Shown here is a 239-nucleotide RNA from Sorex araneus, a member of the family "Small nucleolar RNA SNORD17". Taxonomically the source falls in Sorex (Eukaryota, Deuterostomia, Gnathostomata, Dipnotetrapodomorpha). By type it is a C/D-box small nucleolar RNA. Rfam's curators write: The snoRNA HBI-43 belongs to the C/D family of snoRNAs, guiding 2'O-ribose methylation at position U3797 of the 28S rRNA. Pseudouridylation in position U3797 is predicted to be guided by the H/ACA snoRNA ACA48. For this family Rfam cites "RNomics: an experimental approach that identifies 201 candidates for novel, small, non-messenger RNAs in mouse" (Huttenhofer et al., EMBO J, 2001). Its family is annotated with RNA processing and nucleolus in the Gene Ontology. The sequence is in the family's curated seed alignment.

[Rfam]
Nucleotides: 239
Stems, first nucleotide, its partner, number of pairs: 010238005017231004023225007030217002034213002038184002041181001043179008052170004056165002059090002062087004066082006093162006111150002113147001116144002119141010186211005192205002195202002
Number, partner (000 for none) and nucleotide at each position: 001000g002000u003000g004000a005000a006000a007000u008000g009000a010238u011237g012236a013235u014234u015000c016000a017231g018230u019229u020228u021000a022000u023225c024224c025223a026222u027221u028220c029219g030217c031216u032000g033000a034213g035212u036000a037000c038184g039183c040000a041181g042000u043179c044178a045177c046176u047175g048174a049173u050172c051000u052170u053169c054168u055167u056165c057164c058000a059090a060089g061000c062087c063086u064085c065084a066082g067081u068080u069079c070078c071077c072000g073000u074000u075000c076000u077071g078070g079069g080068a081067a082066c083000c084065u085064g086063a087062g088000u089060c090059u091000a092000c093162g094161c095160a096159g097158c098157c099000u100000c101000c102000a103000g104000u105000u106000g107000c108000c109000u110000u111150g112149c113147c114000u115000u116144g117143c118000a119141g120140u121139c122138u123137g124136u125135a126134g127133u128132g129000u130000u131000c132128u133127a134126c135125u136124g137123u138122g139121g140120a141119c142000a143117g144116c145000u146000u147113g148000u149112g150111u151000g152000u153000u154000g155000g156000u157098g158097g159096c160095u161094g162093c163000u164057g165056g166000u167055a168054a169053g170052a171000u172050g173049g174048u175047u176046g177045g178044u179043g180000u181041c182000a183039g184038c185000a186211g187210g188209g189208a190207u191000a192205g193204g194000u195202c196201c197000u198000c199000c200000g201196g202195g203000u204193c205192c206000c207190a208189u209188c210187u211186c212035a213034c214000u215000a216031a217030g218000a219029u220028g221027a222026g223025u224024g225023g226000u227000g228020a229019a230018a231017u232000c233000u234014g235013a236012u237011c238010a239000c